This 86-nucleotide RNA sequence from Drosophila pseudoobscura belongs to the Rfam family "mir-927 microRNA precursor family". Rfam links the family to the GO terms miRNA-mediated post-transcriptional gene silencing and RISC complex. It is one of the family's seed sequences. NCBI's taxonomy places the organism under Eukaryota, Ecdysozoa, Brachycera, Cyclorrhapha, Sophophora. The literature on the family includes a 2010 paper in Nat Genet by Berezikov et al., "Evolutionary flux of canonical microRNAs and mirtrons in Drosophila".
[Rfam]
RNA sequence: GGAUAUUGUAGUGUUUUAGAAUUCCUACGCUUUACCGUUGCAAAACGAAAUUCGGCAAAGCGUUUGGAUUCUGAAACCCUAUGAGU
Numbered sequence: 001g002g003a004u005a006u007u008g009u010a011g012u013g014u015u016u017u018a019g020a021a022u023u024c025c026u027a028c029g030c031u032u033u034a035c036c037g038u039u040g041c042a043a044a045a046c047g048a049a050a051u052u053c054g055g056c057a058a059a060g061c062g063u064u065u066g067g068a069u070u071c072u073g074a075a076a077c078c079c080u081a082u083g084a085g086u
Stems, first nucleotide, its partner, number of pairs: 011078001013077008022068003027063007035055002